The record is a 36-nucleotide RNA sequence, which matches "DUF805b RNA" in Rfam.
Rfam classes the family as a cis-regulatory element.
Its Rfam clan is "DUF805 clan".
RNA sequence: CCGGAGGAAUCCGAAAAGCCGAUAAAUGAGUAGGAA
Numbered sequence: 001c002c003g004g005a006g007g008a009a010u011c012c013g014a015a016a017a018g019c020c021g022a023u024a025a026a027u028g029a030g031u032a033g034g035a036a
Stems, first nucleotide, its partner, number of pairs: 002021003010035003